[Rfam]
RNA sequence: UUUAAUUUAACCCAAAAUCACACACAUAUCAUUAACUGAUUAUCGGGGUGCUGUUAAAAGCAUUAGCUUUUAGUGGUCGGUUUUUCAGGGUAUGUGGAGGCAAAAC
Numbered sequence: 001u002u003u004a005a006u007u008u009a010a011c012c013c014a015a016a017a018u019c020a021c022a023c024a025c026a027u028a029u030c031a032u033u034a035a036c037u038g039a040u041u042a043u044c045g046g047g048g049u050g051c052u053g054u055u056a057a058a059a060g061c062a063u064u065a066g067c068u069u070u071u072a073g074u075g076g077u078c079g080g081u082u083u084u085u086c087a088g089g090g091u092a093u094g095u096g097g098a099g100g101c102a103a104a105a106c
Stems, first nucleotide, its partner, number of pairs: 023096008037087003042081004050077009
The family of this 106-nucleotide RNA from Vespertiliibacter pulmonis is "t44 RNA". This family consists of a number of bacterial RNA genes of between 135 and 170 bases in length. The t44 gene has been identified in several species of enteric bacteria but homologs have also been identified in Pseudomonas and Coxiella species. The source organism's lineage runs through Bacteria, Pseudomonadota, Pasteurellales, Pasteurellaceae and Vespertiliibacter.